[Rfam]
RNA sequence: GAGGCAGAUCUUUGGUGCGGCACUAAGUGUAUUUGACAAGCUGAAUUUGACACUCAACAUAUCAGUGUCAGUUUGUCAAAUACCCCAAGUGAGGCACUUGCAGCG
Numbered sequence: 001g002a003g004g005c006a007g008a009u010c011u012u013u014g015g016u017g018c019g020g021c022a023c024u025a026a027g028u029g030u031a032u033u034u035g036a037c038a039a040g041c042u043g044a045a046u047u048u049g050a051c052a053c054u055c056a057a058c059a060u061a062u063c064a065g066u067g068u069c070a071g072u073u074u075g076u077c078a079a080a081u082a083c084c085c086c087a088a089g090u091g092a093g094g095c096a097c098u099u100g101c102a103g104c105g
Stems, first nucleotide, its partner, number of pairs: 021091004027085001029083014049069004055065001
RNA: mir-223 microRNA precursor family
Organism: Eleutherodactylus coqui